[Rfam]
RNA sequence: CAACAACGCUAGGGGUCCUGCGCCGUCACGGGCGCGGGUGAGAAAUACCCUCCGAACCUGAUCUGGAUAAUGCCAGCGAAGGGAAGCUACAGAGCAGCGCG
Numbered sequence: 001c002a003a004c005a006a007c008g009c010u011a012g013g014g015g016u017c018c019u020g021c022g023c024c025g026u027c028a029c030g031g032g033c034g035c036g037g038g039u040g041a042g043a044a045a046u047a048c049c050c051u052c053c054g055a056a057c058c059u060g061a062u063c064u065g066g067a068u069a070a071u072g073c074c075a076g077c078g079a080a081g082g083g084a085a086g087c088u089a090c091a092g093a094g095c096a097g098c099g100c101g
Stems, first nucleotide, its partner, number of pairs: 008087003011051004016045001017038008057082003063076004

The family of this 101-nucleotide sequence from Massilia forsythiae is "TPP riboswitch aptamer (THI element)". A reference for the family is Rodionov et al. (2002), "Comparative genomics of thiamin biosynthesis in procaryotes. New genes and regulatory mechanisms", J Biol Chem.